RNA sequence: CAUCAGGGGUGAAAUAGUUGCCCUCCUUGAAAGUAAUUUCAAGGUAAUAAACUGGGUUAAAAUUGGAAGGCGCAAAACGAUAAUGCCUAACGUAUUAUCGAAGCUAAUCAAUUACCACUGCUGGCAGAAAUGUCAGCAAGGUUUAACGACUAGGUGGAGUAAGCUAAGUUUAAAAGACGGCGUCCCCGUCUUUUUUAUAUGCAGAAACGCCCACGAAAUCCAGCGCCCCAUUGGGGUGAAGAGAUAGUCUGAACUUAUGGGAAACCAUAAG
Numbered sequence: 001c002a003u004c005a006g007g008g009g010u011g012a013a014a015u016a017g018u019u020g021c022c023c024u025c026c027u028u029g030a031a032a033g034u035a036a037u038u039u040c041a042a043g044g045u046a047a048u049a050a051a052c053u054g055g056g057u058u059a060a061a062a063u064u065g066g067a068a069g070g071c072g073c074a075a076a077a078c079g080a081u082a083a084u085g086c087c088u089a090a091c092g093u094a095u096u097a098u099c100g101a102a103g104c105u106a107a108u109c110a111a112u113u114a115c116c117a118c119u120g121c122u123g124g125c126a127g128a129a130a131u132g133u134c135a136g137c138a139a140g141g142u143u144u145a146a147c148g149a150c151u152a153g154g155u156g157g158a159g160u161a162a163g164c165u166a167a168g169u170u171u172a173a174a175a176g177a178c179g180g181c182g183u184c185c186c187c188g189u190c191u192u193u194u195u196u197a198u199a200u201g202c203a204g205a206a207a208c209g210c211c212c213a214c215g216a217a218a219u220c221c222a223g224c225g226c227c228c229c230a231u232u233g234g235g236g237u238g239a240a241g242a243g244a245u246a247g248u249c250u251g252a253a254c255u256u257a258u259g260g261g262a263a264a265c266c267a268u269a270a271g
Stems, first nucleotide, its partner, number of pairs: 005027005011021001013019001031039002052223004057218002061113006070104002114142002120137005146250001148249005226236004256269005
Dot-bracket structure: ....(((((.(.(.....).).)))))...((.....))............[[[[.[[..((((((...((...............................))...))))))((....(((((........)))))...))...(.(((((................................................................]].]]]]..((((...))))........)))))).....(((((....)))))..
The family of this 271-nucleotide sequence from Streptococcus phage phiJH1301-1 is "Group I catalytic intron". The base pairs follow the family's consensus structure, which is taken from published work. From the family's description: Group I catalytic introns are large self-splicing ribozymes. They catalyse their own excision from mRNA, tRNA and rRNA precursors in a wide range of organisms. The core secondary structure consists of 9 paired regions (P1-P9). These fold to essentially two domains - the P4-P6 domain (formed from the stacking of P5, P4, P6 and P6a helices) and the P3-P9 domain (formed from the P8, P3, P7 and P9 helices). The secondary structure mark-up for this family represents only this conserved core. Group I catalytic introns often have long ORFs inserted in loop regions. The window size for this search is chosen to minimise search time and catch the small examples. A larger window size will find more matches. For this family Rfam cites "Self-splicing of group I introns" (Cech, Annu Rev Biochem, 1990).